The family of this 119-nucleotide RNA sequence from Mucilaginibacter pallidiroseus is "SAM riboswitch aptamer (S box leader)". NCBI's taxonomy places the organism under Bacteria, Bacteroidota, Sphingobacteriia, Sphingobacteriaceae, Mucilaginibacter.

[Rfam]
RNA sequence: UACUUAUCCAGAAAGACAGAGGGAAAGGCCCUAUGACGUCUUAGCAACCUGUACGGUUUUAAUUAAACGUAAAAGGUGCUAAUUCCUGCUUCGUAAACCAAUGCGAAGACAGAUAAGCU
Numbered sequence: 001u002a003c004u005u006a007u008c009c010a011g012a013a014a015g016a017c018a019g020a021g022g023g024a025a026a027g028g029c030c031c032u033a034u035g036a037c038g039u040c041u042u043a044g045c046a047a048c049c050u051g052u053a054c055g056g057u058u059u060u061a062a063u064u065a066a067a068c069g070u071a072a073a074a075g076g077u078g079c080u081a082a083u084u085c086c087u088g089c090u091u092c093g094u095a096a097a098c099c100a101a102u103g104c105g106a107a108g109a110c111a112g113a114u115a116a117g118c119u
Stems, first nucleotide, its partner, number of pairs: 003117006013042005021031003026087003043080004048076002052071003084111001089108006
Dot-bracket structure: ..((((((....(((((...(((..[[[)))......)))))((((.((..(((..............)))...))))))...(]]].((((((........))))))..)))))))..
Gene Ontology term of the family: regulation of gene expression.